Rfam assigns this 135-nucleotide RNA from Phoenicopterus ruber to the family "Small nucleolar RNA SNORA58". Rfam classes the family as an H/ACA-box small nucleolar RNA. The match comes from Rfam's covariance-model search (85 bits). A reference for the family is Huttenhofer et al. (2001), "RNomics: an experimental approach that identifies 201 candidates for novel, small, non-messenger RNAs in mouse", EMBO J. Its family is annotated with RNA processing and nucleolus in the Gene Ontology. From the family's description: ACA52 is a member of the H/ACA class of snoRNA that guide the sites of modification of uridines to pseudouridines.

RNA sequence: GUGCAUACCAGUAGACCUUAUCUGGUUGUUCCGAUAGCCAGACGAGGGGGACGGUGCAUGCUACAAAAACCGGGGGUUGCUGUAGGUUGUCGUCAGCCUCGACGUGGCUGGUGGAACUGCAAUACUCCAACAUAC
Numbered sequence: 001g002u003g004c005a006u007a008c009c010a011g012u013a014g015a016c017c018u019u020a021u022c023u024g025g026u027u028g029u030u031c032c033g034a035u036a037g038c039c040a041g042a043c044g045a046g047g048g049g050g051a052c053g054g055u056g057c058a059u060g061c062u063a064c065a066a067a068a069a070c071c072g073g074g075g076g077u078u079g080c081u082g083u084a085g086g087u088u089g090u091c092g093u094c095a096g097c098c099u100c101g102a103c104g105u106g107g108c109u110g111g112u113g114g115a116a117c118u119g120c121a122a123u124a125c126u127c128c129a130a131c132a133u134a135c
Stems, first nucleotide, its partner, number of pairs: 003061004008056001016047004021042004073128004078124001081121003093111005